[Rfam]
RNA sequence: CAUGUCUAAUGUGAUGAUAAGUAUGUUGGUAGGGACAUCUGAAAAAAAUGAGGAAACGCCAACUUUACUGACCAGACAUG
Numbered sequence: 001c002a003u004g005u006c007u008a009a010u011g012u013g014a015u016g017a018u019a020a021g022u023a024u025g026u027u028g029g030u031a032g033g034g035a036c037a038u039c040u041g042a043a044a045a046a047a048a049u050g051a052g053g054a055a056a057c058g059c060c061a062a063c064u065u066u067a068c069u070g071a072c073c074a075g076a077c078a079u080g
Base pairs, nucleotide, nucleotide: 001080002079003078004077005076
The record is an 80-nucleotide sequence from Coregonus sp. 'balchen', which matches "Small nucleolar RNA SNORD74" in Rfam. A search with the family's covariance model found it, with a score of 57 bits. The source organism's lineage runs through Eukaryota, Metazoa, Gnathostomata, Actinopteri and Coregonus. Its family is annotated with nucleolus and RNA processing in the Gene Ontology.